[Rfam]
Notes:
A member of the RNA family "Picornavirus internal ribosome entry site (IRES)" from Enterovirus betacoxsackie, 252 nucleotides long. On this family, see Liu et al., Virology 1999: "Structural and functional analysis of the 5' untranslated region of coxsackievirus B3 RNA: In vivo translational and infectivity studies of full-length mutants". Taxonomically the source falls in Enterovirus B (Viruses, Orthornavirae, Ensavirinae, Enterovirus betacoxsackie). Rfam describes the family as follows. This family represents the Picornavirus internal ribosome entry site (IRES). IRES elements allow cap and end-independent translation of mRNA in the host cell. It has been found that La autoantigen (La) is required for Coxsackievirus B3 (CVB3) IRES-mediated translation, and it has been suggested that La may be required for the efficient translation of the viral RNA in the pancreas. The base pairs follow the family's consensus structure, which was predicted with PFOLD. Rfam's curators put it in the seed alignment.
RNA sequence: AUGGGACGCUCUUAUACAGACAUGGUGCGAAGAGUCUAUUGAGCUAGUUGGUAUUCCUCCGGCCCCUGAAUGCGGCUAAUCCUAACUGUGGAUCAUGCGCCCUCAAACCAGAGGGAAGCGUGUCGUAAUGGGCAACUCCGCAGCGGAACCGACUACUUUGGGUGUCCGUGUUUCAUUUUAUUCUUACUUUGGCUGCUUAUGGUGACAAUUGAAAGGUUGUUACCAUAUAGCUAUUGGAUUGGCCAUCCGGUG
Numbered sequence: 001a002u003g004g005g006a007c008g009c010u011c012u013u014a015u016a017c018a019g020a021c022a023u024g025g026u027g028c029g030a031a032g033a034g035u036c037u038a039u040u041g042a043g044c045u046a047g048u049u050g051g052u053a054u055u056c057c058u059c060c061g062g063c064c065c066c067u068g069a070a071u072g073c074g075g076c077u078a079a080u081c082c083u084a085a086c087u088g089u090g091g092a093u094c095a096u097g098c099g100c101c102c103u104c105a106a107a108c109c110a111g112a113g114g115g116a117a118g119c120g121u122g123u124c125g126u127a128a129u130g131g132g133c134a135a136c137u138c139c140g141c142a143g144c145g146g147a148a149c150c151g152a153c154u155a156c157u158u159u160g161g162g163u164g165u166c167c168g169u170g171u172u173u174c175a176u177u178u179u180a181u182u183c184u185u186a187c188u189u190u191g192g193c194u195g196c197u198u199a200u201g202g203u204g205a206c207a208a209u210u211g212a213a214a215g216g217u218u219g220u221u222a223c224c225a226u227a228u229a230g231c232u233a234u235u236g237g238a239u240u241g242g243c244c245a246u247c248c249g250g251u252g
Base pairs, nucleotide, nucleotide: 004012005011006010020026021025034196035195042194043193044192045191046190050183051182060168061167062166064162065161066160073151074150075149080147081146082145086143087142088141089140090139091138092137094122095121096120097119100115101114102113103112104111123131124130125129198227199226200225201224202223203222204221205220206219207218208217209216210215